This 97-nucleotide RNA from Kitasatospora sp. MMS16-BH015 belongs to the Rfam family "Bacterial small signal recognition particle RNA". Rfam classes the family as a non-coding RNA gene. From the family's description: The signal recognition particle (SRP) is a universally conserved ribonucleoprotein involved in the co-translational targeting of proteins to membranes.
[Rfam]
RNA sequence: GGCAGCCCCUCGUGUGGCGUUAUCUCUCUGAACCCCCCCAGGGCCGGAAGGCAGCAAGGGUAAGAGGGCUCUGACGGGUGCACGGGGGGUCUUUGCG
Numbered sequence: 001g002g003c004a005g006c007c008c009c010u011c012g013u014g015u016g017g018c019g020u021u022a023u024c025u026c027u028c029u030g031a032a033c034c035c036c037c038c039c040a041g042g043g044c045c046g047g048a049a050g051g052c053a054g055c056a057a058g059g060g061u062a063a064g065a066g067g068g069c070u071c072u073g074a075c076g077g078g079u080g081c082a083c084g085g086g087g088g089g090u091c092u093u094u095g096c097g
Stems, first nucleotide, its partner, number of pairs: 005090010015078001018076005024068006035060003043052003